[Rfam]
RNA: Glycine riboswitch aptamer
Organism: Pseudoroseicyclus tamaricis
Nucleotides: 123
Base pairs, nucleotide, nucleotide: 007117009115010114011113012112013111020048021047022046023045024044025043050104051103052102053100054099057098058097059096063091064090065089066088067087
Number, partner (000 for none) and nucleotide at each position: 001000c002000c003000g004000c005000a006000a007117c008000a009115c010114u011113c012112c013111g014000a015000a016000g017000a018000g019000u020048c021047g022046c023045u024044c025043g026000c027000c028000g029000g030000g031000u032000g033000g034000g035000a036000c037000c038000c039000c040000g041000g042000c043025c044024g045023g046022g047021c048020g049000c050104g051103c052102c053100g054099a055000a056000g057098g058097a059096g060000c061000a062000a063091g064090c065089c066088g067087g068000g069000c070000c071000a072000c073000c074000c075000a076000u077000g078000g079000c080000g081000g082000g083000c084000g085000g086000a087067u088066c089065g090064g091063u092000g093000a094000a095000u096059c097058u098057c099054u100053c101000a102052g103051g104050c105000c106000c107000g108000g109000u110000a111013c112012g113011g114010a115009g116000g117007g118000g119000g120000c121000g122000c123000a